[Rfam]
RNA sequence: UGACUGCGAUGAAGCAGGAGGUUGCCGAUACACACGGCCGCUUUGCCAUGGCGUGUGUAGGAAAAUUUCUGCGGAGAAAAUGUCUAUUUUGAAAAUAGGCGAAAA
Numbered sequence: 001u002g003a004c005u006g007c008g009a010u011g012a013a014g015c016a017g018g019a020g021g022u023u024g025c026c027g028a029u030a031c032a033c034a035c036g037g038c039c040g041c042u043u044u045g046c047c048a049u050g051g052c053g054u055g056u057g058u059a060g061g062a063a064a065a066u067u068u069c070u071g072c073g074g075a076g077a078a079a080a081u082g083u084c085u086a087u088u089u090u091g092a093a094a095a096u097a098g099g100c101g102a103a104a105a
Stems, first nucleotide, its partner, number of pairs: 014072003018069004025061002081104001083102002088099003
RNA: S10-Clostridia ribosomal protein leader